[Rfam]
RNA sequence: CGUGCCGGACGACCGCACGCGCUUCGAAUCAUCGGGGACGGCCCCA
Numbered sequence: 001c002g003u004g005c006c007g008g009a010c011g012a013c014c015g016c017a018c019g020c021g022c023u024u025c026g027a028a029u030c031a032u033c034g035g036g037g038a039c040g041g042c043c044c045c046a
Stems, first nucleotide, its partner, number of pairs: 001019005007014002034045004

This 46-nucleotide sequence from Caballeronia concitans belongs to the Rfam family "Guanidine-II riboswitch aptamer (mini-ykkC)".
Rfam links the family to the GO term regulation of gene expression.
The family's consensus secondary structure is taken from published work.
Rfam's curators write: Simpler in structure and has fewer highly conserved nucleotide positions than the ykkC-yxkD leader.
On this family, see Weinberg et al., Nucleic Acids Res 2007: "Identification of 22 candidate structured RNAs in bacteria using the CMfinder comparative genomics pipeline".